Background
This 148-nucleotide RNA from Vibrio anguillarum belongs to the Rfam family "DABA-DC-AT RNA". The family's consensus secondary structure is taken from published work. The organism belongs to Vibrio anguillarum serovar O2, within Bacteria.

RNA sequence: CCAAUCUCGGGCAGUAGCUUCUGGGGGACACGCGUAAUGACCAUUCAGGCUGAUUGUGACAUUACGUAGGGUAGGUAUCAGCAAGUCCUUUUGUUGAUAGACGGGAUACUCUUGCAGCGGGAGCUGCAUGUGAAUGGGAAACCCAACA
Numbered sequence: 001c002c003a004a005u006c007u008c009g010g011g012c013a014g015u016a017g018c019u020u021c022u023g024g025g026g027g028a029c030a031c032g033c034g035u036a037a038u039g040a041c042c043a044u045u046c047a048g049g050c051u052g053a054u055u056g057u058g059a060c061a062u063u064a065c066g067u068a069g070g071g072u073a074g075g076u077a078u079c080a081g082c083a084a085g086u087c088c089u090u091u092u093g094u095u096g097a098u099a100g101a102c103g104g105g106a107u108a109c110u111c112u113u114g115c116a117g118c119g120g121g122a123g124c125u126g127c128a129u130g131u132g133a134a135u136g137g138g139a140a141a142c143c144c145a146a147c148a
Stems, first nucleotide, its partner, number of pairs: 006025006032067008042056002076099010113128006